[Rfam]
This 354-nucleotide part of an RNA from Lachnospiraceae bacterium OF09-33XD belongs to the Rfam family "Bacterial small subunit ribosomal RNA".
The match comes from Rfam's covariance-model search (1574 bits).
Taxonomically the source falls in Lachnospiraceae (Bacteria, Bacillati, Bacillota, Clostridia).
RNA sequence: GGUGUAAAGGGAGCGUAGACGGCUCUGCAAGUCUGGAGUGAAAACCCGGGGCUCAACCCUGGGACUGCUUUGGAAACUGUGGAGCUUGAGUACCGGAGGGGUAAGCGGAAUUCCUAGUGUAGCGGUGAAAUGCGUAGAUAUUAGGAGGAACACCAGUGGCGAAGGCGGCUUACUGGACGGUAACUGACGUUGAGGCUCGAAAGCGUGGGGAGCAAACAGGAUUAGAUACCCUGGUAGUCCACGCCGUAAACGAUGAAUACUAGGUGUCGGGAGGCAAAGCCUUUCGGUGCCGCCGCAAACGCAUUAAGUAUUCCACCUGGGGAGUACGUUCGCAAGAAUGAAACUCAAAGGAAU
Numbered sequence: 001g002g003u004g005u006a007a008a009g010g011g012a013g014c015g016u017a018g019a020c021g022g023c024u025c026u027g028c029a030a031g032u033c034u035g036g037a038g039u040g041a042a043a044a045c046c047c048g049g050g051g052c053u054c055a056a057c058c059c060u061g062g063g064a065c066u067g068c069u070u071u072g073g074a075a076a077c078u079g080u081g082g083a084g085c086u087u088g089a090g091u092a093c094c095g096g097a098g099g100g101g102u103a104a105g106c107g108g109a110a111u112u113c114c115u116a117g118u119g120u121a122g123c124g125g126u127g128a129a130a131u132g133c134g135u136a137g138a139u140a141u142u143a144g145g146a147g148g149a150a151c152a153c154c155a156g157u158g159g160c161g162a163a164g165g166c167g168g169c170u171u172a173c174u175g176g177a178c179g180g181u182a183a184c185u186g187a188c189g190u191u192g193a194g195g196c197u198c199g200a201a202a203g204c205g206u207g208g209g210g211a212g213c214a215a216a217c218a219g220g221a222u223u224a225g226a227u228a229c230c231c232u233g234g235u236a237g238u239c240c241a242c243g244c245c246g247u248a249a250a251c252g253a254u255g256a257a258u259a260c261u262a263g264g265u266g267u268c269g270g271g272a273g274g275c276a277a278a279g280c281c282u283u284u285c286g287g288u289g290c291c292g293c294c295g296c297a298a299a300c301g302c303a304u305u306a307a308g309u310a311u312u313c314c315a316c317c318u319g320g321g322g323a324g325u326a327c328g329u330u331c332g333c334a335a336g337a338a339u340g341a342a343a344c345u346c347a348a349a350g351g352a353a354u
Stems, first nucleotide, its partner, number of pairs: 001317003009314001011198004016192001018191003022085007030078002032074009045063007089185003092181004100174007107151001111147008122133003159166002203244006212238002217233004255313006263291012295302002319346003328339004